Record summary:
This 73-nucleotide RNA sequence from Dictyoglomus turgidum belongs to the Rfam family "tRNA". The family's RNA type in Rfam is transfer RNA. Rfam links the family to the GO term triplet codon-amino acid adaptor activity.
RNA sequence: GGCGGUGUAGCUCAGCGGUUAGAGCACACGGUUCAUAACCGUGGUGUCCAGGGUUCGAAUCCCUGCACCGCCA
Numbered sequence: 001g002g003c004g005g006u007g008u009a010g011c012u013c014a015g016c017g018g019u020u021a022g023a024g025c026a027c028a029c030g031g032u033u034c035a036u037a038a039c040c041g042u043g044g045u046g047u048c049c050a051g052g053g054u055u056c057g058a059a060u061c062c063c064u065g066c067a068c069c070g071c072c073a
Stems, first nucleotide, its partner, number of pairs: 001072007010025004027043005049065005